[Rfam]
The family of this 129-nucleotide sequence from Hipposideros armiger is "Small nucleolar RNA SNORA11". Rfam's curators write: U107 (SNORA11) is a member of the H/ACA class of snoRNAs that guide the sites of modification of uridines to pseudouridines. This snoRNA was identified by RT-PCR from blood cells and its expression confirmed by Northern blot analysis. There is no predicted target for this guide snRNA. Lineage of the source: Eukaryota > Metazoa > Amniota > Eutheria > Hipposideros. Gene Ontology terms of the family: nucleolus and RNA processing. The base pairs follow the family's consensus structure, which was predicted with RNAalifold.

RNA sequence: GGGGUGUGAUCAGAGCAAGGCACCUGAAGAAUGGCUUCUUUGUUUACAACACACCCAACAGGAACUUGGGUUUUCUCCUCACAGGUGGCAGGACACUAUGACCUUCCUGUGACAUUAUGCCCCAUACAU
Numbered sequence: 001g002g003g004g005u006g007u008g009a010u011c012a013g014a015g016c017a018a019g020g021c022a023c024c025u026g027a028a029g030a031a032u033g034g035c036u037u038c039u040u041u042g043u044u045u046a047c048a049a050c051a052c053a054c055c056c057a058a059c060a061g062g063a064a065c066u067u068g069g070g071u072u073u074u075c076u077c078c079u080c081a082c083a084g085g086u087g088g089c090a091g092g093a094c095a096c097u098a099u100g101a102c103c104u105u106c107c108u109g110u111g112a113c114a115u116u117a118u119g120c121c122c123c124a125u126a127c128a129u
Stems, first nucleotide, its partner, number of pairs: 002056007013045008023034002068122004076114001080111002083104003088099001090097002